[Rfam]
RNA sequence: UUUCAUCAGGCUGUGGUUGCGGGUGUCAAGGAGAUGCCCUAGUCCAAGGCAGACGAGGUCAAAAGGAUCCACGUAAGUUUGGGUGUGCGCACGCAAGCGAGCAUGGCUCGUCCUAGAAGUAAGUCGUACCGUCCGUACUAUAUGAGAGGCAUACCGUCUCGCGGGCGAGAGAGUUAGUAGUAAGCAUGUUGCGGCAUGUACGCAAACGCUCCAGUAUGCGAGUGUGGGGUCAAAUACCAGGUCAGCUGGUGAAA
Numbered sequence: 001u002u003u004c005a006u007c008a009g010g011c012u013g014u015g016g017u018u019g020c021g022g023g024u025g026u027c028a029a030g031g032a033g034a035u036g037c038c039c040u041a042g043u044c045c046a047a048g049g050c051a052g053a054c055g056a057g058g059u060c061a062a063a064a065g066g067a068u069c070c071a072c073g074u075a076a077g078u079u080u081g082g083g084u085g086u087g088c089g090c091a092c093g094c095a096a097g098c099g100a101g102c103a104u105g106g107c108u109c110g111u112c113c114u115a116g117a118a119g120u121a122a123g124u125c126g127u128a129c130c131g132u133c134c135g136u137a138c139u140a141u142a143u144g145a146g147a148g149g150c151a152u153a154c155c156g157u158c159u160c161g162c163g164g165g166c167g168a169g170a171g172a173g174u175u176a177g178u179a180g181u182a183a184g185c186a187u188g189u190u191g192c193g194g195c196a197u198g199u200a201c202g203c204a205a206a207c208g209c210u211c212c213a214g215u216a217u218g219c220g221a222g223u224g225u226g227g228g229g230u231c232a233a234a235u236a237c238c239a240g241g242u243c244a245g246c247u248g249g250u251g252a253a254a
Stems, first nucleotide, its partner, number of pairs: 001254009011245003014239004046225001048223001049059001052112006068106002078096002082092001104232001125218005130167007171211004180203002187196003

Overview: raiA RNA: a 254-nucleotide RNA sequence from Atopobium minutum. It is annotated as a riboswitch. A search with the family's covariance model found it, with a score of 157 bits.